[Rfam]
Rfam assigns this 91-nucleotide RNA from Anolis carolinensis to the family "mir-191 microRNA precursor family". NCBI's taxonomy places the organism under Eukaryota, Metazoa, Squamata, Unidentata, Anolis. It scores 59 bits against the family's covariance model. The base pairs follow the family's consensus structure, which was predicted with RNAalifold.

RNA sequence: GGUAGGAAAGCAAGGAACGAAAUCCAAGUGCAGCUGGAACUUUAAGAGGAAAACAGCUGCUUUUGGGAUUCCGUUGCCCACUAUCAAACCA
Numbered sequence: 001g002g003u004a005g006g007a008a009a010g011c012a013a014g015g016a017a018c019g020a021a022a023u024c025c026a027a028g029u030g031c032a033g034c035u036g037g038a039a040c041u042u043u044a045a046g047a048g049g050a051a052a053a054c055a056g057c058u059g060c061u062u063u064u065g066g067g068a069u070u071c072c073g074u075u076g077c078c079c080a081c082u083a084u085c086a087a088a089c090c091a
Stems, first nucleotide, its partner, number of pairs: 009082002017074003021070003024066004030060007